[Rfam]
RNA sequence: UUGCUUUCCUAAGUACUAGUGCCGCAGGAGUUGGGUUUGAGUCUGUAUAUUCCUCCUGCUGCCCAAGUGCUUAUCAAAGCGA
Numbered sequence: 001u002u003g004c005u006u007u008c009c010u011a012a013g014u015a016c017u018a019g020u021g022c023c024g025c026a027g028g029a030g031u032u033g034g035g036u037u038u039g040a041g042u043c044u045g046u047a048u049a050u051u052c053c054u055c056c057u058g059c060u061g062c063c064c065a066a067g068u069g070c071u072u073a074u075c076a077a078a079g080c081g082a
Base pairs, nucleotide, nucleotide: 001082002081003080004079005078006077007076010073011072012071013070014069015068016067017066019064024059025058026057027056028055029054030053
Shown here is an 82-nucleotide RNA sequence from Drosophila busckii, a member of the family "mir-252 microRNA precursor family".
The family is grouped with related families in Rfam's "mir-252 microRNA precursor family".
The base pairs follow the family's consensus structure, which was predicted with RNAalifold.
Taxonomically the source falls in Dorsilopha (Eukaryota, Dicondylia, Eumetabola, Drosophilidae).